Lysine riboswitch aptamer: a 169-nucleotide sequence from Leuconostoc lactis. The match comes from Rfam's covariance-model search (116 bits). Riboswitches are metabolite binding domains within certain messenger RNAs that serve as precision sensors for their corresponding targets. Allosteric rearrangement of mRNA structure is mediated by ligand binding, and this results in modulation of gene expression. This family includes riboswitches that sense lysine in a number of genes involved in lysine metabolism, including lysC.
[Rfam]
RNA sequence: AGUUAUCAAAGAGGUUGCAACCAACAUGAGUAACGUAAAUGAGUUCGCCAAGAACAGUGAUUUUACGCGAAAGGGGCGGUUGCCGAAAUUUCUCGCAAGGCAGCGGGAGAUUGGGCUAACAACGAAUAGUUGUUAGACUGUCACGGCGACGUGGUGUGCUUUGAAAAGU
Numbered sequence: 001a002g003u004u005a006u007c008a009a010a011g012a013g014g015u016u017g018c019a020a021c022c023a024a025c026a027u028g029a030g031u032a033a034c035g036u037a038a039a040u041g042a043g044u045u046c047g048c049c050a051a052g053a054a055c056a057g058u059g060a061u062u063u064u065a066c067g068c069g070a071a072a073g074g075g076g077c078g079g080u081u082g083c084c085g086a087a088a089u090u091u092c093u094c095g096c097a098a099g100g101c102a103g104c105g106g107g108a109g110a111u112u113g114g115g116c117u118a119a120c121a122a123c124g125a126a127u128a129g130u131u132g133u134u135a136g137a138c139u140g141u142c143a144c145g146g147c148g149a150c151g152u153g154g155u156g157u158g159c160u161u162u163g164a165a166a167a168g169u
Base pairs, nucleotide, nucleotide: 006164007163008162009161010160011159017083018082019081020080021079022078025075034067035066036065037064038063039062087112088111089110090109091108092107093106094105095104096103113139114138116136117135118134119133120132121131122130123129141154142153143152144151145150

The organism belongs to Leuconostoc, within Bacteria. Its family is annotated with lysine biosynthetic process in the Gene Ontology.